[Rfam]
RNA sequence: GGGUUGAUACAACAAAAAUUGUAUCAAGUCAUGCAAAGGAUGGUUACCUUUGCAAAUAUGGCGACACUGUCAAAUUGCCGGAAAAUCCUGUUAAGUCUAUAGUACCGCUCUAGUACCGAAAGGUCUGACUAGUUGCACCAUAGAGAAAUCUAUGGGUAUGGUAAGAAUCUAUGGAAUAAGGAUAAUCGGCAGCCAAGUCCUAAACCAUAUUUUAAAGAUAUGGCAUGGAUGCAGUUCAGAGACUAAAUGUCAGUGGGUCAUUCAUAUAUGAGAAUGGCUUAAGAUAUAGUCCGCCCCACCCGAGAGGGUGCU
Numbered sequence: 001g002g003g004u005u006g007a008u009a010c011a012a013c014a015a016a017a018a019u020u021g022u023a024u025c026a027a028g029u030c031a032u033g034c035a036a037a038g039g040a041u042g043g044u045u046a047c048c049u050u051u052g053c054a055a056a057u058a059u060g061g062c063g064a065c066a067c068u069g070u071c072a073a074a075u076u077g078c079c080g081g082a083a084a085a086u087c088c089u090g091u092u093a094a095g096u097c098u099a100u101a102g103u104a105c106c107g108c109u110c111u112a113g114u115a116c117c118g119a120a121a122g123g124u125c126u127g128a129c130u131a132g133u134u135g136c137a138c139c140a141u142a143g144a145g146a147a148a149u150c151u152a153u154g155g156g157u158a159u160g161g162u163a164a165g166a167a168u169c170u171a172u173g174g175a176a177u178a179a180g181g182a183u184a185a186u187c188g189g190c191a192g193c194c195a196a197g198u199c200c201u202a203a204a205c206c207a208u209a210u211u212u213u214a215a216a217g218a219u220a221u222g223g224c225a226u227g228g229a230u231g232c233a234g235u236u237c238a239g240a241g242a243c244u245a246a247a248u249g250u251c252a253g254u255g256g257g258u259c260a261u262u263c264a265u266a267u268a269u270g271a272g273a274a275u276g277g278c279u280u281a282a283g284a285u286a287u288a289g290u291c292c293g294c295c296c297c298a299c300c301c302g303a304g305a306g307g308g309u310g311c312u
Base pairs, nucleotide, nucleotide: 001025002024005021006020007019008018030039032037065255066254067253068252069251071249072248076191077190078189079188080187081186086182087181088180089179192235193234197230198229199228200227205223206222207221208220209219239292241291242290243289244288245287257278258277259276260275261274262273263272265270297310298309299308300307301306
RNA: Group I catalytic intron
Organism: Naegleria fowleri